[Rfam]
Shown here is a 123-nucleotide RNA sequence from Geotalea daltonii, a member of the family "Molybdenum/Tungsten riboswitch aptamer (Moco RNA motif)". A search with the family's covariance model found it, with a score of 66 bits.
RNA sequence: GACAAAACAAGUCUCCGAGCCUCCAUUGCCUAAAGGGCGUCAAACCCCACGGCAUGGAGGCCUGCAGGCCGGGCCGGAAACGGCCGGACCUCCCUUUCGGAAAGGAGACUGCAAAUAAUCACU
Numbered sequence: 001g002a003c004a005a006a007a008c009a010a011g012u013c014u015c016c017g018a019g020c021c022u023c024c025a026u027u028g029c030c031u032a033a034a035g036g037g038c039g040u041c042a043a044a045c046c047c048c049a050c051g052g053c054a055u056g057g058a059g060g061c062c063u064g065c066a067g068g069c070c071g072g073g074c075c076g077g078a079a080a081c082g083g084c085c086g087g088a089c090c091u092c093c094c095u096u097u098c099g100g101a102a103a104g105g106a107g108a109c110u111g112c113a114a115a116u117a118a119u120c121a122c123u
Base pairs, nucleotide, nucleotide: 004116011109012108013107014106015105016104019061020060021059022058023057024056025055026054028053029052030051035047036046037045066091067090068089070087072085073084074083075082076081092100093099